A member of the RNA family "SAM riboswitch aptamer (S box leader)" from Halobacillus karajensis, 108 nucleotides long. The organism belongs to Halobacillus, within Bacteria.
[Rfam]
RNA sequence: CACUUAUCCAGAGAGGCGGAGGGACAGGCCCUGCGAUGCCCAGCAACCGGCAAGUUUGUUUGUACGGUGCUAAUUCCUGCGAAGUCUGUAGACUUUGAUAGAUGAGAA
Numbered sequence: 001c002a003c004u005u006a007u008c009c010a011g012a013g014a015g016g017c018g019g020a021g022g023g024a025c026a027g028g029c030c031c032u033g034c035g036a037u038g039c040c041c042a043g044c045a046a047c048c049g050g051c052a053a054g055u056u057u058g059u060u061u062g063u064a065c066g067g068u069g070c071u072a073a074u075u076c077c078u079g080c081g082a083a084g085u086c087u088g089u090a091g092a093c094u095u096u097g098a099u100a101g102a103u104g105a106g107a108a
Stems, first nucleotide, its partner, number of pairs: 003106006013041001015040003021031003025079004042071004047067002049063001052060001075100001080097006